[Rfam]
The record is an 88-nucleotide sequence from Peptococcaceae bacterium CEB3, which matches "c-di-GMP-I riboswitch aptamer" in Rfam. Pairs were carried over by alignment from the consensus structure, which is taken from published work. On this family, see Sudarsan et al., Science 2008: "Riboswitches in Eubacteria Sense the Second Messenger Cyclic Di-GMP". Rfam's curators write: GEMM was predicted in a large-scale screen for bacterial structured RNA regulatory elements.

RNA sequence: UUGUAAUAAGGGCAAAUCCAUCGAAAGGUGGAGACGCAAAGCGUAGGGUCUAAGGUGCCACCGGCACUAUGACAGCCUGGCUGCUACA
Numbered sequence: 001u002u003g004u005a006a007u008a009a010g011g012g013c014a015a016a017u018c019c020a021u022c023g024a025a026a027g028g029u030g031g032a033g034a035c036g037c038a039a040a041g042c043g044u045a046g047g048g049u050c051u052a053a054g055g056u057g058c059c060a061c062c063g064g065c066a067c068u069a070u071g072a073c074a075g076c077c078u079g080g081c082u083g084c085u086a087c088a
Stems, first nucleotide, its partner, number of pairs: 012037002017032006040082003045078003048073003055067004